[Rfam]
RNA: Burkholderia RNA 7 (anti-hemB)
RNA sequence: UCCCCCGCUUCUCCUCCCUGAGCGGGUGCCUGUCGUGACUACGAUAAGGCAUUGUUUAAUGCCGCCGUGAUAAGACACGGCGGUUUUUUUU
Dot-bracket structure: ...((((((...........)))))).((((.(((......)))..))))...........((((((((......))))))))........